Notes:
A member of the RNA family "ZMP/ZTP riboswitch aptamer (pfl RNA motif)" from Paenibacillus sp. D9, 82 nucleotides long. A search with the family's covariance model found it, with a score of 59 bits. The organism belongs to Paenibacillus, within Bacteria.
[Rfam]
RNA sequence: CCGACUGUGCGUGACUGGCGGAGCAUGGGUCCAACCAUGAGGGAGCGCAUGGAUACAGCAGCCGUACGCCUGGGCAGAGGUA
Dot-bracket structure: ..(.((((((((..(([[[[....((((......))))..))..)))))))).)....(.(((...]]]]..))).).....